The family of this 84-nucleotide RNA sequence from Halanaerobium hydrogeniformans is "c-di-GMP-I riboswitch aptamer". Lineage of the source: Bacteria > Bacillati > Clostridia > Halanaerobiales > Halanaerobium.
RNA sequence: AAAAAUAAAAGGCAAUUCAAUCGAAAGGUUGUUACGCAAAAGUCUGAAUCUACGGGGGUACCCUAUGAUUGUCAGCUUGCCUCA
Numbered sequence: 001a002a003a004a005a006u007a008a009a010a011g012g013c014a015a016u017u018c019a020a021u022c023g024a025a026a027g028g029u030u031g032u033u034a035c036g037c038a039a040a041a042g043u044c045u046g047a048a049u050c051u052a053c054g055g056g057g058g059u060a061c062c063c064u065a066u067g068a069u070u071g072u073c074a075g076c077u078u079g080c081c082u083c084a
Base pairs, nucleotide, nucleotide: 012037013036018031019030020029021028022027040078041077042076043075045074046073047072048069049068050067055063056062057061